The record is a 161-nucleotide RNA sequence from Thalassospira sp. HJ, which matches "6S / SsrS RNA" in Rfam. NCBI's taxonomy places the organism under Bacteria, Pseudomonadati, Pseudomonadota, Thalassospiraceae, Thalassospira. From the family's description: E. coli 6S RNA was the first non coding RNA to be sequenced, but its function was unknown until recently. It consists of 184 nucleotides that fold into an extended hairpin structure with a large single-stranded internal bulge. The 6S RNA specifically associates with RNA polymerase holoenzyme containing the sigma70 specificity factor.

RNA sequence: AGGGGGCUGCCCUGUUCGUCAGGUUCGCUAAUUCCCGGGGCCGAUGCUCAUUUCUCUAGGGAGCUGUCCCUUGCCAGGCCGUGGUCUGGUUAUACGGCGCCCACCUGCACCUGCAGGUCACGAGGAAUUACCAAAUGGCCAACGGCAGCGGUGGCUCCCGC
Numbered sequence: 001a002g003g004g005g006g007c008u009g010c011c012c013u014g015u016u017c018g019u020c021a022g023g024u025u026c027g028c029u030a031a032u033u034c035c036c037g038g039g040g041c042c043g044a045u046g047c048u049c050a051u052u053u054c055u056c057u058a059g060g061g062a063g064c065u066g067u068c069c070c071u072u073g074c075c076a077g078g079c080c081g082u083g084g085u086c087u088g089g090u091u092a093u094a095c096g097g098c099g100c101c102c103a104c105c106u107g108c109a110c111c112u113g114c115a116g117g118u119c120a121c122g123a124g125g126a127a128u129u130a131c132c133a134a135a136u137g138g139c140c141a142a143c144g145g146c147a148g149c150g151g152u153g154g155c156u157c158c159c160g161c
Base pairs, nucleotide, nucleotide: 002159003158004157005156006155007154008153009152010151011150012148013147014146015145017144018143019142032127033126034125035124038121040118041117042116059102060101061100063098064097065096066095067094073090074089075088076087077086078085079084